[Rfam]
RNA sequence: GAUUUAUAAAGAAGAGGCGAGAGAACAGGCUCUGUGAACCUCUGGCAACCACUCCAAGCGAAGGAAAAGGUGCCAAAACCUGCCCAAAUGGGAACUAUAAAUU
Dot-bracket structure: ((((((((....(((((...(((..[[[[)))......)))))((((.((..(((.......)))...))))))....]]]](((....)))...))))))))
RNA: SAM riboswitch aptamer (S box leader)
Organism: Mongoliitalea lutea